Annotation: This 66-nucleotide sequence from Diabrotica balteata belongs to the Rfam family "mir-29 microRNA precursor family". The base pairs follow the family's consensus structure, which was predicted with PFOLD. This family represents the microRNA (miRNA) precursors mir-29. Rfam 15.1 lists 3,328 matches to the family in 787 species. Taxonomically the source falls in Diabrotica (Eukaryota, Metazoa, Altocrustacea, Cucujiformia). The literature on the family includes a 2001 paper in Cell by Ambros, "microRNAs: tiny regulators with great potential". Its family is annotated with gene silencing by miRNA and RISC complex in the Gene Ontology.
[Rfam]
RNA sequence: UGAGCACUGUUUUCUUGUGGUGUCAAGAUUGGAUUUAAUUCUAGCACCAUUCGAAAUCAGUUCUUG
Numbered sequence: 001u002g003a004g005c006a007c008u009g010u011u012u013u014c015u016u017g018u019g020g021u022g023u024c025a026a027g028a029u030u031g032g033a034u035u036u037a038a039u040u041c042u043a044g045c046a047c048c049a050u051u052c053g054a055a056a057u058c059a060g061u062u063c064u065u066g
Stems, first nucleotide, its partner, number of pairs: 001066004007060003011056004017050006026042003